RNA sequence: ACGGAGUGUCGUGGCGGGCACUUGUGAGCCAGCCUCUAGGCCGUAGAUUAUGGUGGAGAGAGUGAGGGAGGGAUCCCUGGUCGGAAUUCGGUCUACGACGACCGGGCGUCCGUGCCAAGCGAUGCGUCACUAGGGGGUAAGACUCGGAAGGGUCUCUCUCCCGGGUGGAAAAGGACAACCGUAUGGCUCAGGCCCGAAAGGGAGCAGGCAAAAGGUUGCGCGCGUUGACAGUGGCCGGAUAGCGUCUGCGAGUAAAUCGAUCUGAACAGCCCUUCUAAUACCUCUCGACCCAUAAUCGC
Numbered sequence: 001a002c003g004g005a006g007u008g009u010c011g012u013g014g015c016g017g018g019c020a021c022u023u024g025u026g027a028g029c030c031a032g033c034c035u036c037u038a039g040g041c042c043g044u045a046g047a048u049u050a051u052g053g054u055g056g057a058g059a060g061a062g063u064g065a066g067g068g069a070g071g072g073a074u075c076c077c078u079g080g081u082c083g084g085a086a087u088u089c090g091g092u093c094u095a096c097g098a099c100g101a102c103c104g105g106g107c108g109u110c111c112g113u114g115c116c117a118a119g120c121g122a123u124g125c126g127u128c129a130c131u132a133g134g135g136g137g138u139a140a141g142a143c144u145c146g147g148a149a150g151g152g153u154c155u156c157u158c159u160c161c162c163g164g165g166u167g168g169a170a171a172a173g174g175a176c177a178a179c180c181g182u183a184u185g186g187c188u189c190a191g192g193c194c195c196g197a198a199a200g201g202g203a204g205c206a207g208g209c210a211a212a213a214g215g216u217u218g219c220g221c222g223c224g225u226u227g228a229c230a231g232u233g234g235c236c237g238g239a240u241a242g243c244g245u246c247u248g249c250g251a252g253u254a255a256a257u258c259g260a261u262c263u264g265a266a267c268a269g270c271c272c273u274u275c276u277a278a279u280a281c282c283u284c285u286c287g288a289c290c291c292a293u294a295a296u297c298g299c
Base pairs, nucleotide, nucleotide: 001044002043003042004023005022006021007020008019009018010017028041029040030039046297047296048295049294050293051292052291053290058286059285060284061283062282066276067275068274069273070272071271072270077269078268079267081265082264083263084262087260088259090257092256094254095253096252103248104247105246106245107244108243109242110238111237114235115234116233117232119229121226122225123224124223125222126221127220128167129166130165131164133162134161135160136159137158140155141154142153143152144151145150176218177217178216179215180214186209187208188207193202194201195200